[Rfam]
RNA sequence: CGCCCUUGACCAAGACAGAUACUCGACCGCCCAUUUCGCAAGUGAUUGCUUUUAUUGCAGAACAUCGUGGAUUUUACGGGGUCGAGCCGAUGUGCAAAAUGCUGCAGAUUGCUCCG
Dot-bracket structure: .............(.(.(........).).).............................................(((((......((.(.((((......)))).).)))))))
Numbered sequence: 001c002g003c004c005c006u007u008g009a010c011c012a013a014g015a016c017a018g019a020u021a022c023u024c025g026a027c028c029g030c031c032c033a034u035u036u037c038g039c040a041a042g043u044g045a046u047u048g049c050u051u052u053u054a055u056u057g058c059a060g061a062a063c064a065u066c067g068u069g070g071a072u073u074u075u076a077c078g079g080g081g082u083c084g085a086g087c088c089g090a091u092g093u094g095c096a097a098a099a100u101g102c103u104g105c106a107g108a109u110u111g112c113u114c115c116g
Stems, first nucleotide, its partner, number of pairs: 014031001016029001018027001077116005088111002091108001093106004
The record is a 116-nucleotide RNA from Donghicola tyrosinivorans, which matches "ALIL pseudoknot" in Rfam.
By type it is a cis-regulatory element.
It scores 62 bits against the family's covariance model.
The literature on the family includes a 2008 paper in J Biol Chem by Mazauric et al., "Apical loop-internal loop RNA pseudoknots: a new type of stimulator of -1 translational frameshifting in bacteria".